[Rfam]
RNA sequence: AAGGCCGAGGGGCGCUGCGAUCGUGUUUUCGCGACCAGGCUCGGCUUUCCAAACAACGGCGCCCGUGACUG
Numbered sequence: 001a002a003g004g005c006c007g008a009g010g011g012g013c014g015c016u017g018c019g020a021u022c023g024u025g026u027u028u029u030c031g032c033g034a035c036c037a038g039g040c041u042c043g044g045c046u047u048u049c050c051a052a053a054c055a056a057c058g059g060c061g062c063c064c065g066u067g068a069c070u071g
Base pairs, nucleotide, nucleotide: 002047003046004045005044006043007042008041021034022033023032024031025030

A member of the RNA family "SAH (S-adenosyl-L-homocysteine) riboswitch aptamer" from Thermomonas hydrothermalis, 71 nucleotides long. Rfam links the family to the GO terms S-adenosylhomocysteine metabolic process and regulation of gene expression. The organism belongs to Thermomonas, within Bacteria.